Rfam assigns this 307-nucleotide RNA sequence from Cynoglossus semilaevis to the family "Nuclear RNase P". The organism belongs to Cynoglossus, within Eukaryota. From the family's description: Ribonuclease P (RNase P) is a ubiquitous endoribonuclease, found in archaea, bacteria and eukarya as well as chloroplasts and mitochondria. Rfam 15.1 lists 3,848 matches to the family in 1,862 species.
RNA sequence: GUGGGAGGAAGCUCAUUGUAGAGGUCACGUGCCGAGUACUUGUUACUCCACCAAUCACCUUGGGGAAGGUCUGAGACAAGAGCCAAUAGUUGCCCUAGCAGGGUAGCGUCUGACAGAGGCGAGCGGCUAACUAGCAACAUGGUUGUACGUGAACGGAUUGAACAGGAGAUGUCGCUGUGGCCAAUUAACUGACCAUUGCGACGGAUGUGACGUUCACCACAUUGGAAUGUGUCGCGGCUGGCAAAUGAGCACGAUGUAUGAGAUGGUGCCUAGCAUCACAACCCAAUUCAGACUACUCUCCUUCCAC
Numbered sequence: 001g002u003g004g005g006a007g008g009a010a011g012c013u014c015a016u017u018g019u020a021g022a023g024g025u026c027a028c029g030u031g032c033c034g035a036g037u038a039c040u041u042g043u044u045a046c047u048c049c050a051c052c053a054a055u056c057a058c059c060u061u062g063g064g065g066a067a068g069g070u071c072u073g074a075g076a077c078a079a080g081a082g083c084c085a086a087u088a089g090u091u092g093c094c095c096u097a098g099c100a101g102g103g104u105a106g107c108g109u110c111u112g113a114c115a116g117a118g119g120c121g122a123g124c125g126g127c128u129a130a131c132u133a134g135c136a137a138c139a140u141g142g143u144u145g146u147a148c149g150u151g152a153a154c155g156g157a158u159u160g161a162a163c164a165g166g167a168g169a170u171g172u173c174g175c176u177g178u179g180g181c182c183a184a185u186u187a188a189c190u191g192a193c194c195a196u197u198g199c200g201a202c203g204g205a206u207g208u209g210a211c212g213u214u215c216a217c218c219a220c221a222u223u224g225g226a227a228u229g230u231g232u233c234g235c236g237g238c239u240g241g242c243a244a245a246u247g248a249g250c251a252c253g254a255u256g257u258a259u260g261a262g263a264u265g266g267u268g269c270c271u272a273g274c275a276u277c278a279c280a281a282c283c284c285a286a287u288u289c290a291g292a293c294u295a296c297u298c299u300c301c302u303u304c305c306a307c
Stems, first nucleotide, its partner, number of pairs: 001307004007301003012262005021061004034048005071291005081239004091105005107121005123235005264278006
It scores 182 bits against the family's covariance model. Its family is annotated with ribonuclease P activity, ribonuclease P complex and tRNA processing in the Gene Ontology.